[Rfam]
RNA sequence: CUGUGAUCUGGUUCAAGUAAUCCAGGAUAGGCUGUGUGUAUGUUUGUGAGCCUACUCGUGAUUACUUGCACUGGGCUGCAG
Numbered sequence: 001c002u003g004u005g006a007u008c009u010g011g012u013u014c015a016a017g018u019a020a021u022c023c024a025g026g027a028u029a030g031g032c033u034g035u036g037u038g039u040a041u042g043u044u045u046g047u048g049a050g051c052c053u054a055c056u057c058g059u060g061a062u063u064a065c066u067u068g069c070a071c072u073g074g075g076c077u078g079c080a081g
Base pairs, nucleotide, nucleotide: 002080003079004078005077007075008074009073010072011071012070014068015067016066017065018064019063020062021061022060025057026056028054029053030052031051032050033049
The record is an 81-nucleotide RNA sequence from Gasterosteus aculeatus, which matches "mir-26 microRNA precursor family" in Rfam. A reference for the family is Lagos-Quintana et al. (2001), "Identification of novel genes coding for small expressed RNAs", Science. Pairs were carried over by alignment from the consensus structure, which was predicted with RNAalifold. The source organism's lineage runs through Eukaryota, Bilateria, Actinopterygii, Clupeocephala and Gasterosteus.